[Rfam]
RNA sequence: GACCGAGGCCGUGACUGGCGUACCUGAGGUGGGCCCAACCACCGGGGAGCGGCCGCAGUUCCCCGCCGGAGCGCCGUUCGCCUGGGCGCCUGGG
Numbered sequence: 001g002a003c004c005g006a007g008g009c010c011g012u013g014a015c016u017g018g019c020g021u022a023c024c025u026g027a028g029g030u031g032g033g034c035c036c037a038a039c040c041a042c043c044g045g046g047g048a049g050c051g052g053c054c055g056c057a058g059u060u061c062c063c064c065g066c067c068g069g070a071g072c073g074c075c076g077u078u079c080g081c082c083u084g085g086g087c088g089c090c091u092g093g094g
Stems, first nucleotide, its partner, number of pairs: 003058001005056001007054006015046002017082004029042004071089005